The family of this 130-nucleotide sequence is "U11 spliceosomal RNA". Pairs were carried over by alignment from the consensus structure, which is taken from published work.

[Rfam]
RNA sequence: UAAAAGGGUUGGUUGGCUAAAUAUGCCAUGCUAGCCUUGUGUUAAGGCUAGUGCUGUAUGGCUAUCAAGACAUAUGGCCGACACAAUUUCUGGAACUUUCACAGGGUUGGCCCCAUUGGCCGACCCUCCA
Numbered sequence: 001u002a003a004a005a006g007g008g009u010u011g012g013u014u015g016g017c018u019a020a021a022u023a024u025g026c027c028a029u030g031c032u033a034g035c036c037u038u039g040u041g042u043u044a045a046g047g048c049u050a051g052u053g054c055u056g057u058a059u060g061g062c063u064a065u066c067a068a069g070a071c072a073u074a075u076g077g078c079c080g081a082c083a084c085a086a087u088u089u090c091u092g093g094a095a096c097u098u099u100c101a102c103a104g105g106g107u108u109g110g111c112c113c114c115a116u117u118g119g120c121c122g123a124c125c126c127u128c129c130a
Stems, first nucleotide, its partner, number of pairs: 008082005014028004029053010054077007103127008112119002